[Rfam]
Rfam assigns this 130-nucleotide RNA from Ceyx cyanopectus to the family "Small nucleolar RNA SNORA72". U72 is a member of the H/ACA class of snoRNAs. The snoRNA gene is located in intron 4 of the ribosomal L30 protein gene in human, mouse and chicken. The family's consensus secondary structure was predicted with PFOLD. It scores 88 bits against the family's covariance model.
RNA sequence: AGGCGAAUAUUCUCGCUGUCCUGGGCUCUGUGGCCAGGGCAGGCUAAACAUUCGCUACAGCAGCACUGGCACGUGUCCUCCAGGGCUGGGGGCUGCUCCAGCACUGGCUCUGCAAAUGCCAGUCACACAU
Numbered sequence: 001a002g003g004c005g006a007a008u009a010u011u012c013u014c015g016c017u018g019u020c021c022u023g024g025g026c027u028c029u030g031u032g033g034c035c036a037g038g039g040c041a042g043g044c045u046a047a048a049c050a051u052u053c054g055c056u057a058c059a060g061c062a063g064c065a066c067u068g069g070c071a072c073g074u075g076u077c078c079u080c081c082a083g084g085g086c087u088g089g090g091g092g093c094u095g096c097u098c099c100a101g102c103a104c105u106g107g108c109u110c111u112g113c114a115a116a117u118g119c120c121a122g123u124c125a126c127a128c129a130u
Base pairs, nucleotide, nucleotide: 003055004054005053016042017041018040019039020038021037022036023035024034026032065123066122067121068120069119070118080107081106082105083104085102086101087100088099089098